Lysine riboswitch aptamer: a 177-nucleotide sequence from Lactobacillus sp. LL6. The match comes from Rfam's covariance-model search (109 bits). Riboswitches are metabolite binding domains within certain messenger RNAs that serve as precision sensors for their corresponding targets. Allosteric rearrangement of mRNA structure is mediated by ligand binding, and this results in modulation of gene expression.

[Rfam]
RNA sequence: UCAAAUCGAAGAGGUGCAAUCAACAUCAGUAACUCUUAUGAAGCAAGACAAUGCUAGUGAUUGGAGUGAAAGGGAAGAUUGCCGAAGCUAUAGUAUUUGUCAGUGCUAUUGGCUGGGUCGUAAUUGAAUAAAUUACGGACUGUCGCGAAAAAUACUCGCGGAGCGCUAUCGACCAUA
Numbered sequence: 001u002c003a004a005a006u007c008g009a010a011g012a013g014g015u016g017c018a019a020u021c022a023a024c025a026u027c028a029g030u031a032a033c034u035c036u037u038a039u040g041a042a043g044c045a046a047g048a049c050a051a052u053g054c055u056a057g058u059g060a061u062u063g064g065a066g067u068g069a070a071a072g073g074g075a076a077g078a079u080u081g082c083c084g085a086a087g088c089u090a091u092a093g094u095a096u097u098u099g100u101c102a103g104u105g106c107u108a109u110u111g112g113c114u115g116g117g118u119c120g121u122a123a124u125u126g127a128a129u130a131a132a133u134u135a136c137g138g139a140c141u142g143u144c145g146c147g148a149a150a151a152a153u154a155c156u157c158g159c160g161g162a163g164c165g166c167u168a169u170c171g172a173c174c175a176u177a
Stems, first nucleotide, its partner, number of pairs: 006172004010167002016082006024074001032067005038061002086114003090109007115141002118138008143161006

Taxonomically the source falls in Lactobacillus (Bacteria, Bacillati, Bacilli, Lactobacillaceae).